RNA: Small nucleolar RNA Z157/R69/R10
RNA sequence: AUUGGAGCAGUGAUGAGCAUUUUUUGUGGACUAGAGUUUCUGAUACUGCCUCUGUAGUAUUUGAUGACCAAACCCUUGGCUGUCUGAGCUCUGAA
Number, nucleotide and partner (000 for none) at each position: 001a000002u094003u093004g092005g091006a090007g089008c088009a000010g000011u000012g000013a000014u000015g000016a000017g000018c000019a000020u000021u000022u000023u000024u000025u000026g000027u000028g000029g000030a000031c000032u000033a000034g000035a000036g000037u066038u000039u064040c063041u000042g000043a000044u059045a058046c057047u056048g055049c054050c000051u000052c000053u000054g049055u048056a047057g046058u045059a044060u000061u000062u000063g040064a039065u000066g037067a000068c000069c000070a000071a000072a000073c000074c000075c000076u000077u000078g000079g000080c000081u000082g000083u000084c000085u000086g000087a000088g008089c007090u006091c005092u004093g003094a002095a000